Rfam assigns this 225-nucleotide RNA from Oryza sativa to the family "MIR807 microRNA precursor family".
It scores 120 bits against the family's covariance model.
RNA sequence: AACCACACUAUCGAUAAAUGGAUUCACCCGUGAGAUGACGUGGUCGUUCCUAGAUGGAACGACCACGUCAUCUCACGGGUGAAUCCAUUUAUCGAUAGUGUGGUUUUGUGAAACUAAACUACCAAUUACCAGCCAUCGCACGAAAUUAAUAGGAUGCCACGUCUUCAUCCUAGAUGGAAUGACCACGUCAUCUCACGGGUGAAUCCAUUUAUCGAUAGUGUGGUU
Numbered sequence: 001a002a003c004c005a006c007a008c009u010a011u012c013g014a015u016a017a018a019u020g021g022a023u024u025c026a027c028c029c030g031u032g033a034g035a036u037g038a039c040g041u042g043g044u045c046g047u048u049c050c051u052a053g054a055u056g057g058a059a060c061g062a063c064c065a066c067g068u069c070a071u072c073u074c075a076c077g078g079g080u081g082a083a084u085c086c087a088u089u090u091a092u093c094g095a096u097a098g099u100g101u102g103g104u105u106u107u108g109u110g111a112a113a114c115u116a117a118a119c120u121a122c123c124a125a126u127u128a129c130c131a132g133c134c135a136u137c138g139c140a141c142g143a144a145a146u147u148a149a150u151a152g153g154a155u156g157c158c159a160c161g162u163c164u165u166c167a168u169c170c171u172a173g174a175u176g177g178a179a180u181g182a183c184c185a186c187g188u189c190a191u192c193u194c195a196c197g198g199g200u201g202a203a204u205c206c207a208u209u210u211a212u213c214g215a216u217a218g219u220g221u222g223g224u225u
Stems, first nucleotide, its partner, number of pairs: 001225007009217007017209003021205008030196004035191005041185008052175001055172002059168001069156005075150001

A reference for the family is Luo et al. (2006), "Rice embryogenic calli express a unique set of microRNAs, suggesting regulatory roles of microRNAs in plant post-embryogenic development", FEBS Lett.